[Rfam]
RNA: Small nucleolar RNA snoR104
RNA sequence: GGGGAGCAUCUAAAAGCUGAGAUGUUUCCUGAUACAAACUUCCAACAGAAAAACCUCUGUAGUUUCCUGCUUGUAGUACUUGAGCGAGUUCUGCAAGUCUCAAAUUGACAGAGACAUGA
Number, nucleotide and partner (000 for none) at each position: 001g030002g029003g028004g000005a026006g025007c024008a023009u022010c021011u020012a000013a000014a000015a000016g000017c000018u000019g000020a011021g010022a009023u008024g007025u006026u005027u000028c003029c002030u001031g000032a000033u000034a000035c000036a000037a000038a000039c000040u000041u000042c000043c000044a000045a000046c000047a000048g000049a000050a000051a000052a000053a000054c000055c000056u112057c111058u110059g000060u000061a000062g000063u000064u000065u000066c000067c000068u000069g098070c097071u096072u095073g094074u093075a092076g091077u000078a089079c088080u087081u000082g000083a000084g000085c000086g000087a080088g079089u078090u000091c076092u075093g074094c073095a072096a071097g070098u069099c000100u000101c000102a000103a000104a000105u000106u000107g000108a000109c000110a058111g057112a056113g000114a000115c000116a000117u000118g000119a000